[Rfam]
RNA sequence: AAGGAGCAAGAAACCCUUUUUUGAUAAAACAAGAAAGGGUUUCUUGCUCCUUUAUUU
Numbered sequence: 001a002a003g004g005a006g007c008a009a010g011a012a013a014c015c016c017u018u019u020u021u022u023g024a025u026a027a028a029a030c031a032a033g034a035a036a037g038g039g040u041u042u043c044u045u046g047c048u049c050c051u052u053u054a055u056u057u
Base pairs, nucleotide, nucleotide: 001052002051003050004049005048006047007046008045009044010043011042012041018035019034020033021032022031023030

The family of this 57-nucleotide RNA sequence is "Plastid-psbA-3 3UTR RNA". Plastid psbA-3 is a non-coding RNA (ncRNA) present in plastids. It was identified in inverted repeat sequences in the 3 prime untranslate region (3UTR) of photosystem II quinone-binding protein (psbA). Rfam's curators put it in the seed alignment. Its Rfam clan is "Plastid-psbA 3UTR RNA clan". It is annotated as a cis-regulatory element.